[Rfam]
RNA: Small nucleolar RNA snoR639/H1
Organism: Vespula vulgaris
RNA sequence: ACCCCACACUAAUAAGCCGACAAUUUCGAUACACAUUUGUUGAGAUUGUGUGCUCGUUGUGGGAACAGCAAAGUCGGCAUAUUGUGUAUGAUUGUAUUAGUUUUAUACUGUCAAAGAAUAUCGAUGCUGGACA
Number, nucleotide and partner (000 for none) at each position: 001a000002c000003c000004c000005c000006a000007c000008a000009c000010u000011a000012a000013u000014a000015a000016g000017c000018c000019g000020a049021c048022a047023a046024u045025u044026u043027c042028g000029a000030u000031a000032c000033a000034c000035a000036u000037u000038u000039g000040u000041u000042g027043a026044g025045a024046u023047u022048g021049u020050g000051u000052g000053c000054u000055c000056g000057u000058u000059g000060u000061g000062g000063g000064a000065a000066c000067a000068g000069c000070a000071a000072a000073g000074u000075c000076g000077g127078c126079a125080u124081a000082u000083u000084g000085u000086g000087u000088a000089u113090g112091a111092u110093u000094g108095u107096a000097u000098u000099a000100g000101u000102u000103u000104u000105a000106u000107a095108c094109u000110g092111u091112c090113a089114a000115a000116g000117a000118a000119u000120a000121u000122c000123g000124a080125u079126g078127c077128u000129g000130g000131a000132c000133a000